[Rfam]
RNA sequence: UGACCCACAAUGCCCUUCAACGGUAUCUGCACGGAUGUGCACCGCUGGAUAUGACGUGAGCGGACGUCGGAUUCAGUGGUCGGUCGGUUCGCCGAAGCCCUCGAUGAGGGGCAUCCUUGCAGGGGCCGUUCACGACAAGUCUAGUGUUCUACUCGUCGUGCUUGUGGAUCGGCGGCAAGUCUGGAGUUCUACCUGACGCUCGAUGCCCGGCUUGCAGCAAGUCUAGUGUUCCACCUGCUGCAUGGCCUGUUAUUCAACGGUACCCAACAUUGGUCUCCUCGCGCUAACCCCGUAGCGUGUGGUUUUUAGCGGGCCCUAAGGCCCGCUUUUUUUC
Numbered sequence: 001u002g003a004c005c006c007a008c009a010a011u012g013c014c015c016u017u018c019a020a021c022g023g024u025a026u027c028u029g030c031a032c033g034g035a036u037g038u039g040c041a042c043c044g045c046u047g048g049a050u051a052u053g054a055c056g057u058g059a060g061c062g063g064a065c066g067u068c069g070g071a072u073u074c075a076g077u078g079g080u081c082g083g084u085c086g087g088u089u090c091g092c093c094g095a096a097g098c099c100c101u102c103g104a105u106g107a108g109g110g111g112c113a114u115c116c117u118u119g120c121a122g123g124g125g126c127c128g129u130u131c132a133c134g135a136c137a138a139g140u141c142u143a144g145u146g147u148u149c150u151a152c153u154c155g156u157c158g159u160g161c162u163u164g165u166g167g168a169u170c171g172g173c174g175g176c177a178a179g180u181c182u183g184g185a186g187u188u189c190u191a192c193c194u195g196a197c198g199c200u201c202g203a204u205g206c207c208c209g210g211c212u213u214g215c216a217g218c219a220a221g222u223c224u225a226g227u228g229u230u231c232c233a234c235c236u237g238c239u240g241c242a243u244g245g246c247c248u249g250u251u252a253u254u255c256a257a258c259g260g261u262a263c264c265c266a267a268c269a270u271u272g273g274u275c276u277c278c279u280c281g282c283g284c285u286a287a288c289c290c291c292g293u294a295g296c297g298u299g300u301g302g303u304u305u306u307u308a309g310c311g312g313g314c315c316c317u318a319a320g321g322c323c324c325g326c327u328u329u330u331u332u333u334c
Stems, first nucleotide, its partner, number of pairs: 005273003019130006026123006033116006043079001047074004052069001054067004084095004098110004277302002280299007308327008
Rfam assigns this 334-nucleotide RNA from Pararobbsia silviterrae to the family "Burkholderia sRNA Bp1_Cand871_SIPHT". It is annotated as a small RNA. It scores 160 bits against the family's covariance model. Taxonomically the source falls in Pararobbsia (Bacteria, Pseudomonadati, Betaproteobacteria, Burkholderiales). The base pairs follow the family's consensus structure, which was predicted with CMfinder.